drz-agam-2-2 ribozyme: a 190-nucleotide RNA from Anopheles stephensi. A search with the family's covariance model found it, with a score of 153 bits. NCBI's taxonomy places the organism under Eukaryota, Eumetazoa, Ecdysozoa, Pancrustacea, Neocellia. The family's consensus secondary structure is taken from published work. The literature on the family includes a 2009 paper in Science by Webb et al., "Widespread occurrence of self-cleaving ribozymes".

[Rfam]
RNA sequence: AGCAAAACCGCACUGAUACGGGUAUGGUUCGACGCCUCUUGAAUGAUAAUAUAGGAUCUCCAUUCCCUACUCCGACUCAAUGCGUCCACGGCGUACAGAACGGUAACAUAUUUCUCCAAUAAUCUGAGCUUGGGUACACGGGGAAACCCGACCCCUUGGAAGGAUGGGUCAUAUGGCUAAAUUGAGAGGG
Number, nucleotide and partner (000 for none) at each position: 001a000002g000003c000004a000005a000006a000007a000008c000009c000010g000011c000012a000013c000014u000015g000016a000017u000018a000019c000020g000021g067022g066023u000024a063025u062026g061027g059028u000029u055030c054031g000032a000033c000034g000035c000036c000037u000038c000039u000040u000041g000042a000043a000044u000045g000046a000047u000048a000049a000050u000051a000052u000053a000054g030055g029056a000057u000058c000059u027060c000061c026062a025063u024064u000065c000066c022067c021068u000069a000070c000071u190072c189073c188074g000075a000076c186077u185078c184079a183080a182081u181082g094083c093084g092085u000086c103087c102088a000089c000090g000091g000092c084093g083094u082095a000096c000097a000098g000099a000100a000101c000102g087103g086104u000105a000106a000107c175108a174109u173110a172111u171112u000113u000114c168115u000116c167117c166118a000119a000120u000121a000122a165123u164124c163125u162126g000127a000128g000129c000130u151131u150132g149133g148134g147135u146136a000137c000138a000139c000140g000141g000142g000143g000144a000145a000146a135147c134148c133149c132150g131151a130152c000153c000154c159155c000156u000157u000158g000159g154160a000161a000162g125163g124164a123165u122166g117167g116168g114169u000170c000171a111172u110173a109174u108175g107176g000177c000178u000179a000180a000181a081182u080183u079184g078185a077186g076187a000188g073189g072190g071